Source information
This 62-nucleotide sequence from Afipia carboxidovorans belongs to the Rfam family "Fluoride riboswitch aptamer (crcB RNA motif)". The sequence is in the family's curated seed alignment.
[Rfam]
RNA sequence: AUUGUUGAUGGGGAUGGAGUUCCCCCGAUAACCGCCGCAAGGCUGAUGACUCCUACCGGACG
Numbered sequence: 001a002u003u004g005u006u007g008a009u010g011g012g013g014a015u016g017g018a019g020u021u022c023c024c025c026c027g028a029u030a031a032c033c034g035c036c037g038c039a040a041g042g043c044u045g046a047u048g049a050c051u052c053c054u055a056c057c058g059g060a061c062g
Base pairs, nucleotide, nucleotide: 010026011025012024013023016053017052018051019050020049021048034043035042036041
Rfam links the family to the GO terms positive regulation of gene expression and response to fluoride. The base pairs follow the family's consensus structure, which is taken from published work.